[Rfam]
RNA sequence: CCAAAGGCUCUUUUCAGAGCCACUCAGUCUUCUAAAAAGAACUGACU
Numbered sequence: 001c002c003a004a005a006g007g008c009u010c011u012u013u014u015c016a017g018a019g020c021c022a023c024u025c026a027g028u029c030u031u032c033u034a035a036a037a038a039g040a041a042c043u044g045a046c047u
Stems, first nucleotide, its partner, number of pairs: 006021006
RNA: Histone 3' UTR stem-loop